[Rfam]
RNA sequence: ACAACGGCUUCUUUAGAAGCCACCACAUAUGAUACGAAAGAUCAAU
Numbered sequence: 001a002c003a004a005c006g007g008c009u010u011c012u013u014u015a016g017a018a019g020c021c022a023c024c025a026c027a028u029a030u031g032a033u034a035c036g037a038a039a040g041a042u043c044a045a046u
Stems, first nucleotide, its partner, number of pairs: 006021006
Histone 3' UTR stem-loop: a 46-nucleotide sequence from Desmophyllum pertusum.
Taxonomically the source falls in Desmophyllum (Eukaryota, Metazoa, Cnidaria, Vacatina).
Rfam classes the family as a cis-regulatory element.
On this family, see Williams and Marzluff, Nucleic Acids Res 1995: "The sequence of the stem and flanking sequences at the 3' end of histone mRNA are critical determinants for the binding of the stem-loop binding protein".
Pairs were carried over by alignment from the consensus structure, which is taken from published work.
The match comes from Rfam's covariance-model search (35 bits).